[Rfam]
RNA sequence: GACAAAGAGGGUGAGAGACCCUCUCGCCGAAAGUCCAAGGGUUCCUGCUUAAAGCUAAUCUGAGCAGGGUAAGCCGGCCCCUAAGGCGAGGCCGAAAGGCGUAGUCGAUGGGAACACGGUUAAUAUUCCGUGGCCAGGAGGAUGUGACGGAUCUCGAAGAUUGUCUUCCCUUAUCGGAUUGGGAAGGCCGUUCAGAGGUUCCUGGAAAUAGCCCUCCAUCAGACCGUACCCUAAACCGACACAGGUGGACAGGUAGAGUAUACCAAGGCGCU
Numbered sequence: 001g002a003c004a005a006a007g008a009g010g011g012u013g014a015g016a017g018a019c020c021c022u023c024u025c026g027c028c029g030a031a032a033g034u035c036c037a038a039g040g041g042u043u044c045c046u047g048c049u050u051a052a053a054g055c056u057a058a059u060c061u062g063a064g065c066a067g068g069g070u071a072a073g074c075c076g077g078c079c080c081c082u083a084a085g086g087c088g089a090g091g092c093c094g095a096a097a098g099g100c101g102u103a104g105u106c107g108a109u110g111g112g113a114a115c116a117c118g119g120u121u122a123a124u125a126u127u128c129c130g131u132g133g134c135c136a137g138g139a140g141g142a143u144g145u146g147a148c149g150g151a152u153c154u155c156g157a158a159g160a161u162u163g164u165c166u167u168c169c170c171u172u173a174u175c176g177g178a179u180u181g182g183g184a185a186g187g188c189c190g191u192u193c194a195g196a197g198g199u200u201c202c203u204g205g206a207a208a209u210a211g212c213c214c215u216c217c218a219u220c221a222g223a224c225c226g227u228a229c230c231c232u233a234a235a236c237c238g239a240c241a242c243a244g245g246u247g248g249a250c251a252g253g254u255a256g257a258g259u260a261u262a263c264c265a266a267g268g269c270g271c272u
Stems, first nucleotide, its partner, number of pairs: 006024006025270004033250004039230002044068006053061002075226003080111002085106003089102001091100003115132005135222001137217001140214002144212002149201004156193002165186006236245002252264004
About this RNA:
Rfam assigns this 272-nucleotide part of an RNA from Rhodobacter sp. 24-YEA-8 to the family "Bacterial large subunit ribosomal RNA". A search with the family's covariance model found it, with a score of 2663 bits. Taxonomically the source falls in Rhodobacter (Bacteria, Pseudomonadati, Pseudomonadota, Alphaproteobacteria).